The family of this 26-nucleotide sequence from Musicola paradisiaca is "L25-Gammaproteobacteria ribosomal protein leader". For this family Rfam cites "Discovery of 20 novel ribosomal leader candidates in bacteria and archaea" (Eckert and Weinberg, BMC Microbiol, 2020). The family's RNA type in Rfam is cis-regulatory leader.
RNA sequence: CCUGCCGCUGGGUCGCCUGCGGCAGG
Numbered sequence: 001c002c003u004g005c006c007g008c009u010g011g012g013u014c015g016c017c018u019g020c021g022g023c024a025g026g
Stems, first nucleotide, its partner, number of pairs: 001026008010017002

The sequence is in the family's curated seed alignment. Pairs were carried over by alignment from the consensus structure, which is taken from published work. Taxonomically the source falls in Musicola paradisiaca (Bacteria, Pseudomonadati, Enterobacterales, Pectobacteriaceae).